[Rfam]
A member of the RNA family "Flavo-1 RNA" from Flavobacterium fluvii, 92 nucleotides long. The organism belongs to Flavobacterium, within Bacteria.
RNA sequence: AAUUAGCCCCGAGUGAAGUGAAAAUCCUUGUUAUGGUGAGAUUGCCGCGCAAGCUCGCAAUGGCAAGAUUGCAACGAAAAGCGGGAGCAGAG
Numbered sequence: 001a002a003u004u005a006g007c008c009c010c011g012a013g014u015g016a017a018g019u020g021a022a023a024a025u026c027c028u029u030g031u032u033a034u035g036g037u038g039a040g041a042u043u044g045c046c047g048c049g050c051a052a053g054c055u056c057g058c059a060a061u062g063g064c065a066a067g068a069u070u071g072c073a074a075c076g077a078a079a080a081g082c083g084g085g086a087g088c089a090g091a092g
Base pairs, nucleotide, nucleotide: 009084010083011082014079018075019074023070024069025068026067029065030064031063032062033061034060036058037057038056039055040054
The family's RNA type in Rfam is small RNA.